[Rfam]
RNA: c-di-AMP riboswitch aptamer (ydaO/yuaA leader)
RNA sequence: GGCAGACACGAGCAAUUCAGGAGCGAGGACGGGGGACCCACCAUCUCCCAGGAGACCGGAUCUCGCACAGAGAUCCUCGGGGUGUAGCCCUGCACCGCAGGGCCGAGCAGCCUCUCGCUCGAACCCGACAGCUGACUUCGUAGGCGCGUGGAGAGAGGGAAC
Numbered sequence: 001g002g003c004a005g006a007c008a009c010g011a012g013c014a015a016u017u018c019a020g021g022a023g024c025g026a027g028g029a030c031g032g033g034g035g036a037c038c039c040a041c042c043a044u045c046u047c048c049c050a051g052g053a054g055a056c057c058g059g060a061u062c063u064c065g066c067a068c069a070g071a072g073a074u075c076c077u078c079g080g081g082g083u084g085u086a087g088c089c090c091u092g093c094a095c096c097g098c099a100g101g102g103c104c105g106a107g108c109a110g111c112c113u114c115u116c117g118c119u120c121g122a123a124c125c126c127g128a129c130a131g132c133u134g135a136c137u138u139c140g141u142a143g144g145c146g147c148g149u150g151g152a153g154a155g156a157g158g159g160a161a162c
Base pairs, nucleotide, nucleotide: 002145003144009027029141030140031139032138033137034136039079080126081125082124088102089101090100091099105120106119107118108117